[Rfam]
RNA sequence: ACGCGUUCAGGAAAUGGUGUCUUCCUGCCGAAACCGCCCGAAAGGGCUGAUGGCGCCUAUUAGGAU
Numbered sequence: 001a002c003g004c005g006u007u008c009a010g011g012a013a014a015u016g017g018u019g020u021c022u023u024c025c026u027g028c029c030g031a032a033a034c035c036g037c038c039c040g041a042a043a044g045g046g047c048u049g050a051u052g053g054c055g056c057c058u059a060u061u062a063g064g065a066u
Base pairs, nucleotide, nucleotide: 010025011024012023013022016057017056018055019054020053021052036047037046038045039044
A member of the RNA family "Fluoride riboswitch aptamer (crcB RNA motif)" from Arundinibacter roseus, 66 nucleotides long. The family has 289 seed sequences and 2,293 matches in Rfam 15.1. NCBI's taxonomy places the organism under Bacteria, Bacteroidota, Cytophagia, Cytophagales, Arundinibacter. The family's consensus secondary structure is taken from published work.